Shown here is a 138-nucleotide sequence from Drosophila melanogaster, a member of the family "Small nucleolar RNA psi18S-1377". Rfam's curators put it in the seed alignment. Pairs were carried over by alignment from the consensus structure, which was predicted with RNAalifold. Lineage of the source: Eukaryota > Arthropoda > Altocrustacea > Dicondylia > Sophophora. From the family's description: psi18S-1377 is a member of the H/ACA class of snoRNA. This family is responsible for guiding the modification of uridines 1377 and 1279 to pseudouridine in Drosophila 18S rRNA. By type it is an H/ACA-box small nucleolar RNA.
RNA sequence: UCGUUCUUGUGUUUUUCGCUGGCUGUCCUUCCAAAGCCAGUGAUUGUCAAACAGAACGUACAUUAAUGGCAGCUUAUCACUCCACAAUGUUGAGCCGAGUUUUCACGGUUACUGCAUUACUUUCCGGCUCGCCACAUC
Numbered sequence: 001u002c003g004u005u006c007u008u009g010u011g012u013u014u015u016u017c018g019c020u021g022g023c024u025g026u027c028c029u030u031c032c033a034a035a036g037c038c039a040g041u042g043a044u045u046g047u048c049a050a051a052c053a054g055a056a057c058g059u060a061c062a063u064u065a066a067u068g069g070c071a072g073c074u075u076a077u078c079a080c081u082c083c084a085c086a087a088u089g090u091u092g093a094g095c096c097g098a099g100u101u102u103u104c105a106c107g108g109u110u111a112c113u114g115c116a117u118u119a120c121u122u123u124c125c126g127g128c129u130c131g132c133c134a135c136a137u138c
Stems, first nucleotide, its partner, number of pairs: 002058006010049002016043007086118005093110004